Shown here is a 169-nucleotide RNA from Paenibacillus crassostreae, a member of the family "c-di-AMP riboswitch aptamer (ydaO/yuaA leader)". NCBI's taxonomy places the organism under Bacteria, Bacillati, Bacillota, Paenibacillaceae, Paenibacillus. Rfam's curators write: This family represents a conserved RNA structure found upstream of the ydaO and yuaA genes in Bacillus subtilis and related genes in other bacteria. The ydaO/yuaA element is thought to act as a genetic 'off' switch for the ydaO and yuaA genes in its native state. It is believed that the element may be triggered during osmotic shock leading to activation of ydaO, a predicted amino acid transporter gene, and members of the yuaA-yubG operon which code for KtrA and KtrB K+ transporters.
[Rfam]
RNA sequence: AUAUUAAUUGUGCCGAGACUUUCAGACAGAAAGUGUGGAGGAUGUAAUUAAGUUUGUACAAGAAUGUGUAAGUUCUUUACAACUAGGGGUGAAUCGCAUUUAACAUGUGUAGGGUUGACUCCCAAUCCGAAUCCGACAGCUAACUUCGCAGGCGUUAUUAUAAGGAGGA
Numbered sequence: 001a002u003a004u005u006a007a008u009u010g011u012g013c014c015g016a017g018a019c020u021u022u023c024a025g026a027c028a029g030a031a032a033g034u035g036u037g038g039a040g041g042a043u044g045u046a047a048u049u050a051a052g053u054u055u056g057u058a059c060a061a062g063a064a065u066g067u068g069u070a071a072g073u074u075c076u077u078u079a080c081a082a083c084u085a086g087g088g089g090u091g092a093a094u095c096g097c098a099u100u101u102a103a104c105a106u107g108u109g110u111a112g113g114g115u116u117g118a119c120u121c122c123c124a125a126u127c128c129g130a131a132u133c134c135g136a137c138a139g140c141u142a143a144c145u146u147c148g149c150a151g152g153c154g155u156u157a158u159u160a161u162a163a164g165g166a167g168g169a
Stems, first nucleotide, its partner, number of pairs: 011154004018034006035149006045086001087134003095109004112128004